[Rfam]
RNA sequence: UAGGUUAAAUCAACAUCGUGGGUUCAGUGUAAUAAGCCCCGCGUAUUGGGGCUUUUUCGUAUCUGGGACAUUUGUUCAGCACGAUAAGUUUUAAGAAUUGCUGGGCUAUAAGCCCUUUUUUU
Numbered sequence: 001u002a003g004g005u006u007a008a009a010u011c012a013a014c015a016u017c018g019u020g021g022g023u024u025c026a027g028u029g030u031a032a033u034a035a036g037c038c039c040c041g042c043g044u045a046u047u048g049g050g051g052c053u054u055u056u057u058c059g060u061a062u063c064u065g066g067g068a069c070a071u072u073u074g075u076u077c078a079g080c081a082c083g084a085u086a087a088g089u090u091u092u093a094a095g096a097a098u099u100g101c102u103g104g105g106c107u108a109u110a111a112g113c114c115c116u117u118u119u120u121u122u
Stems, first nucleotide, its partner, number of pairs: 034054008103115004
Rfam assigns this 122-nucleotide RNA sequence from Colwellia sp. PAMC 20917 to the family "Gammaprotebacteria rimP leader".
The organism belongs to Colwellia, within Bacteria.
The literature on the family includes a 2010 paper in Genome Biol by Naville and Gautheret, "Premature terminator analysis sheds light on a hidden world of bacterial transcriptional attenuation".
It scores 54 bits against the family's covariance model.